Overview: Molybdenum/Tungsten riboswitch aptamer (Moco RNA motif): a 172-nucleotide sequence from Paraglaciecola psychrophila.
RNA sequence: ACCGGUGCAUAACUCCGAGCUAUCUCACCUAAAUCUAUGACAAGGUGCUUUAGCCGUGAAUCUGUUAAUUUUUCUGAUUCGCCAGGGUUGUAAGAGAAAUCGAACAGCCUCCCGUAAGUGUCGCAAAUUUGUGUGUCACUUCAAUUUGGAAAGGUGUUAAAUAAUAUGUUAG
Numbered sequence: 001a002c003c004g005g006u007g008c009a010u011a012a013c014u015c016c017g018a019g020c021u022a023u024c025u026c027a028c029c030u031a032a033a034u035c036u037a038u039g040a041c042a043a044g045g046u047g048c049u050u051u052a053g054c055c056g057u058g059a060a061u062c063u064g065u066u067a068a069u070u071u072u073u074c075u076g077a078u079u080c081g082c083c084a085g086g087g088u089u090g091u092a093a094g095a096g097a098a099a100u101c102g103a104a105c106a107g108c109c110u111c112c113c114g115u116a117a118g119u120g121u122c123g124c125a126a127a128u129u130u131g132u133g134u135g136u137c138a139c140u141u142c143a144a145u146u147u148g149g150a151a152a153g154g155u156g157u158u159a160a161a162u163a164a165u166a167u168g169u170u171a172g
Stems, first nucleotide, its partner, number of pairs: 004165001006163001011158003015154002019054004026047004034040002056082007085110007094101002111149002
Notes:
The family has 160 seed sequences and 1,248 matches in Rfam 15.1.